The family of this 94-nucleotide RNA sequence from Canis lupus is "mir-8813 microRNA precursor family". It scores 94 bits against the family's covariance model. The source organism's lineage runs through Eukaryota, Chordata, Boreoeutheria, Carnivora and Canis lupus. Its family is annotated with miRNA-mediated post-transcriptional gene silencing and RISC complex in the Gene Ontology.

RNA sequence: UGGUGAACUGAGGCUCCCCGACUGUCACUCUGUCCCAGGCCCGUCCUGGCCGUGGGCACAGGCUGAGUCACAGUAGCCUGUGGGGUCCUGACCC
Numbered sequence: 001u002g003g004u005g006a007a008c009u010g011a012g013g014c015u016c017c018c019c020g021a022c023u024g025u026c027a028c029u030c031u032g033u034c035c036c037a038g039g040c041c042c043g044u045c046c047u048g049g050c051c052g053u054g055g056g057c058a059c060a061g062g063c064u065g066a067g068u069c070a071c072a073g074u075a076g077c078c079u080g081u082g083g084g085g086u087c088c089u090g091a092c093c094c
Stems, first nucleotide, its partner, number of pairs: 002093003005087002008084002011079004021074005027068004032063003039057006